transfer-messenger RNA: a 389-nucleotide sequence from Streptomyces vinaceus.
[Rfam]
RNA sequence: GGGGAUGAUCGGUUUCGACAGCGGAUGUCGAUGCAGGGGAAGCGAGCCGAGGAAGCGGCAAUGAUCUCGCUAACCACAUGUCGCAAAAAAUAAUCGCCAACUCCAAGAGCGAUAACUCCCGCUUCACCCUCGCUGCCUAAUAACAGUGAGCUGAAGCCUCUGUGAGGAGCGUCAGCCCGGAAGUGGUCCCGGUCCGGAUCCUGGCGUCAACUAGGGAUCUAAACCUCUAGCCCCGGUCACGGGGGUUGGAGGGAAACCAAACAGUGACUGAGCCCGUCGGAGACUUGUCCGUGUGAUCUCCGGGGCCGAGAAAAGCGCAGCGGACUGCGCUCGGAGAAGCCCUGCUUCUGCACCGUUGGACGCGGGUUCGAUUCCCGCCAUCUCCACUC
Numbered sequence: 001g002g003g004g005a006u007g008a009u010c011g012g013u014u015u016c017g018a019c020a021g022c023g024g025a026u027g028u029c030g031a032u033g034c035a036g037g038g039g040a041a042g043c044g045a046g047c048c049g050a051g052g053a054a055g056c057g058g059c060a061a062u063g064a065u066c067u068c069g070c071u072a073a074c075c076a077c078a079u080g081u082c083g084c085a086a087a088a089a090a091u092a093a094u095c096g097c098c099a100a101c102u103c104c105a106a107g108a109g110c111g112a113u114a115a116c117u118c119c120c121g122c123u124u125c126a127c128c129c130u131c132g133c134u135g136c137c138u139a140a141u142a143a144c145a146g147u148g149a150g151c152u153g154a155a156g157c158c159u160c161u162g163u164g165a166g167g168a169g170c171g172u173c174a175g176c177c178c179g180g181a182a183g184u185g186g187u188c189c190c191g192g193u194c195c196g197g198a199u200c201c202u203g204g205c206g207u208c209a210a211c212u213a214g215g216g217a218u219c220u221a222a223a224c225c226u227c228u229a230g231c232c233c234c235g236g237u238c239a240c241g242g243g244g245g246u247u248g249g250a251g252g253g254a255a256a257c258c259a260a261a262c263a264g265u266g267a268c269u270g271a272g273c274c275c276g277u278c279g280g281a282g283a284c285u286u287g288u289c290c291g292u293g294u295g296a297u298c299u300c301c302g303g304g305g306c307c308g309a310g311a312a313a314a315g316c317g318c319a320g321c322g323g324a325c326u327g328c329g330c331u332c333g334g335a336g337a338a339g340c341c342c343u344g345c346u347u348c349u350g351c352a353c354c355g356u357u358g359g360a361c362g363c364g365g366g367u368u369c370g371a372u373u374c375c376c377g378c379c380a381u382c383u384c385c386a387c388u389c
Base pairs, nucleotide, nucleotide: 001385002384003383004382005381006380007379019358020357021356022355023354024353030348031347033345034344035343036342037341038340043333044332045331046330047329048069049068050067051066052065055084056083057082058081059080060079129150130149131148132147133146134145135144170206171205172204173203174202175201177197178196179195180194181193186219189216190215224252225251226250227249228248229247230246231245232244235269236268237267238266239265240264272306273305274304275303278302279301280300282298283297287325288324289323290322362378363377364376365375366374